Rfam assigns this 66-nucleotide RNA from Prolemur simus to the family "Small nucleolar RNA SNORD109A".
Clan: SNORD74 clan.
A search with the family's covariance model found it, with a score of 63 bits.
Rfam 15.1 lists 412 matches to the family in 134 species.
Rfam links the family to the GO terms RNA processing and nucleolus.
Nucleotides: 066
Stems, first nucleotide, its partner, number of pairs: 001066005
Number, partner (000 for none) and nucleotide at each position: 001066g002065g003064a004063u005062c006000g007000a008000u009000g010000a011000u012000g013000a014000g015000c016000c017000u018000a019000a020000g021000u022000g023000u024000c025000c026000g027000a028000g029000g030000a031000c032000g033000g034000u035000g036000a037000c038000g039000a040000c041000a042000c043000a044000a045000g046000g047000c048000a049000g050000a051000u052000g053000u054000a055000c056000a057000u058000c059000u060000g061000a062005g063004g064003u065002c066001c